[Rfam]
RNA sequence: GAGUUACUUUAUCUAGCAAGGUUAAGAUGUUCAGCAUCGGAUCCGUAGCGAAAGCGAGUCUUAAUAGGGCGUUUUAGUUAGGUUGAGUAGACGCGAAACCGUGUGAUCUACCCUUGGGCAGGUUGAAGCUGUGGUAACACAUAGUGGAGGACCGAACCCGUUGACGUUGAAAAGUCUUGGGAUGACCUGAGGGUAGGGGUGAAAGGCCAAUCAAACUCGGAAAUAGCUCGUA
Numbered sequence: 001g002a003g004u005u006a007c008u009u010u011a012u013c014u015a016g017c018a019a020g021g022u023u024a025a026g027a028u029g030u031u032c033a034g035c036a037u038c039g040g041a042u043c044c045g046u047a048g049c050g051a052a053a054g055c056g057a058g059u060c061u062u063a064a065u066a067g068g069g070c071g072u073u074u075u076a077g078u079u080a081g082g083u084u085g086a087g088u089a090g091a092c093g094c095g096a097a098a099c100c101g102u103g104u105g106a107u108c109u110a111c112c113c114u115u116g117g118g119c120a121g122g123u124u125g126a127a128g129c130u131g132u133g134g135u136a137a138c139a140c141a142u143a144g145u146g147g148a149g150g151a152c153c154g155a156a157c158c159c160g161u162u163g164a165c166g167u168u169g170a171a172a173a174g175u176c177u178u179g180g181g182a183u184g185a186c187c188u189g190a191g192g193g194u195a196g197g198g199g200u201g202a203a204a205g206g207c208c209a210a211u212c213a214a215a216c217u218c219g220g221a222a223a224u225a226g227c228u229c230g231u232a
Stems, first nucleotide, its partner, number of pairs: 005089005011083007020044002023041001026038003048055002058070004092230002095227001099220003103216002108196011119184001121153004128145006157181003163176003198208003
This 232-nucleotide part of an RNA from Mesonia phycicola belongs to the Rfam family "Bacterial large subunit ribosomal RNA". The match comes from Rfam's covariance-model search (2745 bits). Rfam links the family to the GO terms structural constituent of ribosome and ribosome. The organism belongs to Mesonia, within Bacteria. The base pairs follow the family's consensus structure, which is taken from published work.